[Rfam]
RNA sequence: CUGGACCACGACGCUGUUUGUUUUCGAUCCCUCGCAGGAAUGGUGGUUGGCGCGAUGUGCGCGAUAACUGGUGUCCUCACAAUCGCUCUUCCUGUGCCCGUCAUCGUCUCCAAC
Numbered sequence: 001c002u003g004g005a006c007c008a009c010g011a012c013g014c015u016g017u018u019u020g021u022u023u024u025c026g027a028u029c030c031c032u033c034g035c036a037g038g039a040a041u042g043g044u045g046g047u048u049g050g051c052g053c054g055a056u057g058u059g060c061g062c063g064a065u066a067a068c069u070g071g072u073g074u075c076c077u078c079a080c081a082a083u084c085g086c087u088c089u090u091c092c093u094g095u096g097c098c099c100g101u102c103a104u105c106g107u108c109u110c111c112a113a114c
Base pairs, nucleotide, nucleotide: 002113004111008107009106010105011104013102015100016099019096020095021094037077038076040074050062051061
Record summary
The record is a 114-nucleotide sequence from Mesocestoides corti, which matches "Potassium channel RNA editing signal" in Rfam. This family represents a group of sequences related to the human potassium channel Kv1.1 hairpin element which directs the efficient modification of an adenosine to inosine by an adenosine deaminase acting on RNA (ADAR). Pairs were carried over by alignment from the consensus structure, which is taken from published work.